[Rfam]
RNA sequence: UAUAAUACGAGUUUUAUCUUAGCUCAGAAUGAACAGUUACUAUUAGCUUUACACAUGUUAGUUUUGCAAUAAAAGCAGCGAAAGGGUGAGUAAUACAGUAAGAUUCUUCCCUAAAGUAAAGUUAAAUACUUUAUUACAACAAUGUUGGCUUUAGGAUGAGCUUAGAAAUUGGAUUAGGUAGUCGGUAAGAUUAACAGCUUACAGAGCCCAAGAUCCAUAGUUGAUCUGAGAGGAUGAUCAACCACAAUGGUAAUGAAAAGAGGACCAUGGGUUAAAACCCCCCAGCAGUGAGGAAUAUUGGAUAAGGAUUGCAAAAUCGCUCCAGCUAAAUAGUUAAAAAAAAUAGGUUGAAAUAUAUUUAUUUUUUUUUUUAAGAUAUAUCAUUAUGAGUUUAUUAUCUUUAAUACCUAUCCUGACUAAUUUCGUGCCAGCAGUCGCGGUAAUACGAAAAGGAUAACUGUUAUUCUUCAUGAAUU
Numbered sequence: 001u002a003u004a005a006u007a008c009g010a011g012u013u014u015u016a017u018c019u020u021a022g023c024u025c026a027g028a029a030u031g032a033a034c035a036g037u038u039a040c041u042a043u044u045a046g047c048u049u050u051a052c053a054c055a056u057g058u059u060a061g062u063u064u065u066g067c068a069a070u071a072a073a074a075g076c077a078g079c080g081a082a083a084g085g086g087u088g089a090g091u092a093a094u095a096c097a098g099u100a101a102g103a104u105u106c107u108u109c110c111c112u113a114a115a116g117u118a119a120a121g122u123u124a125a126a127u128a129c130u131u132u133a134u135u136a137c138a139a140c141a142a143u144g145u146u147g148g149c150u151u152u153a154g155g156a157u158g159a160g161c162u163u164a165g166a167a168a169u170u171g172g173a174u175u176a177g178g179u180a181g182u183c184g185g186u187a188a189g190a191u192u193a194a195c196a197g198c199u200u201a202c203a204g205a206g207c208c209c210a211a212g213a214u215c216c217a218u219a220g221u222u223g224a225u226c227u228g229a230g231a232g233g234a235u236g237a238u239c240a241a242c243c244a245c246a247a248u249g250g251u252a253a254u255g256a257a258a259a260g261a262g263g264a265c266c267a268u269g270g271g272u273u274a275a276a277a278c279c280c281c282c283c284a285g286c287a288g289u290g291a292g293g294a295a296u297a298u299u300g301g302a303u304a305a306g307g308a309u310u311g312c313a314a315a316a317u318c319g320c321u322c323c324a325g326c327u328a329a330a331u332a333g334u335u336a337a338a339a340a341a342a343a344u345a346g347g348u349u350g351a352a353a354u355a356u357a358u359u360u361a362u363u364u365u366u367u368u369u370u371u372u373a374a375g376a377u378a379u380a381u382c383a384u385u386a387u388g389a390g391u392u393u394a395u396u397a398u399c400u401u402u403a404a405u406a407c408c409u410a411u412c413c414u415g416a417c418u419a420a421u422u423u424c425g426u427g428c429c430a431g432c433a434g435u436c437g438c439g440g441u442a443a444u445a446c447g448a449a450a451a452g453g454a455u456a457a458c459u460g461u462u463a464u465u466c467u468u469c470a471u472g473a474a475u476u
Stems, first nucleotide, its partner, number of pairs: 009025005027466004032462006039334006045327002047292001052290003056287003061079003066076002086245003095169001099164004105159002110155007118132004170217003177208003182205002185202005220242004224235004247268005270281001271278002298324001300323003307318004337366004371403001373401004380393001381389003410455005421450005431438002
Shown here is a 476-nucleotide part of an RNA, a member of the family "Bacterial small subunit ribosomal RNA". The family is grouped with related families in Rfam's "SSU clan". The match comes from Rfam's covariance-model search (575 bits).